A member of the RNA family "ZMP/ZTP riboswitch aptamer (pfl RNA motif)" from Nocardia donostiensis, 78 nucleotides long.
RNA sequence: UGGCAACAACGCGACUGGCGCCGGGUGGGUUACCGCCGGGGAGCGCGAGCAGGAGUAUCGACCGCCUGGGUGCUCCAC
Dot-bracket structure: ..((.....(((..(([[[[....((((....))))..))..)))...))....(((((...]]]]..))))).....